MIR8024 microRNA precursor family: an 86-nucleotide RNA from Solanum tuberosum. The source organism's lineage runs through Eukaryota, Mesangiospermae, eudicotyledons, Solanoideae and Solanum. A search with the family's covariance model found it, with a score of 96 bits.
[Rfam]
RNA sequence: UUGGAGAAUUUGAAGACUUCAACUUACAAACUUGAAGAAUUUGAAGACUUCAACUUGUAGACAUGGAGUAUUUGAAGACUUCAACU
Numbered sequence: 001u002u003g004g005a006g007a008a009u010u011u012g013a014a015g016a017c018u019u020c021a022a023c024u025u026a027c028a029a030a031c032u033u034g035a036a037g038a039a040u041u042u043g044a045a046g047a048c049u050u051c052a053a054c055u056u057g058u059a060g061a062c063a064u065g066g067a068g069u070a071u072u073u074g075a076a077g078a079c080u081u082c083a084a085c086u
Stems, first nucleotide, its partner, number of pairs: 001084006009076006017068005025059004032053006